[Rfam]
RNA sequence: CUUCACCGACCCCAACCACAACGGACGGUUCUCGGGACGGUCCUGCCCGUAGGUGGCCAGCAGGGCCUGGGCCUC
Numbered sequence: 001c002u003u004c005a006c007c008g009a010c011c012c013c014a015a016c017c018a019c020a021a022c023g024g025a026c027g028g029u030u031c032u033c034g035g036g037a038c039g040g041u042c043c044u045g046c047c048c049g050u051a052g053g054u055g056g057c058c059a060g061c062a063g064g065g066c067c068u069g070g071g072c073c074u075c
Base pairs, nucleotide, nucleotide: 016024017023031071032070033069038065043060044059045058047056048055049054

Rfam assigns this 75-nucleotide RNA from Streptomyces sp. AJS327 to the family "ASpks TB sRNA".
The family's RNA type in Rfam is antisense RNA.
The family has 77 seed sequences and 9,052 matches in Rfam 15.1.
The source organism's lineage runs through Bacteria, Actinomycetota, Kitasatosporales, Streptomycetaceae and Streptomyces.